RAGATH-19 RNA: a 141-nucleotide sequence.
The base pairs follow the family's consensus structure, which is taken from published work.

RNA sequence: UUCGCAGUGAGCUGUUUCUACACCUACCUUUACUAGAAAACAGCUAACUACCCUUUCUGAUAAAAAGGAAACAAGAGAGUUUUUAGAACGGCACGUUCUACCGCUUUGUAAGAAAUGAUAAUACAAGCGUAAAUGGUAAUC
Numbered sequence: 001u002u003c004g005c006a007g008u009g010a011g012c013u014g015u016u017u018c019u020a021c022a023c024c025u026a027c028c029u030u031u032a033c034u035a036g037a038a039a040a041c042a043g044c045u046a047a048c049u050a051c052c053c054u055u056u057c058u059g060a061u062a063a064a065a066a067g068g069a070a071a072c073a074a075g076a077g078a079g080u081u082u083u084u085a086g087a088a089c090g091g092c093a094c095g096u097u098c099u100a101c102c103g104c105u106u107u108g109u110a111a112g113a114a115a116u117g118a119u120a121a122u123a124c125a126a127g128c129g130u131a132a133a134u135g136g137u138a139a140u141c
Stems, first nucleotide, its partner, number of pairs: 006049003010045001012043006018036003052068005084100006102129005108124003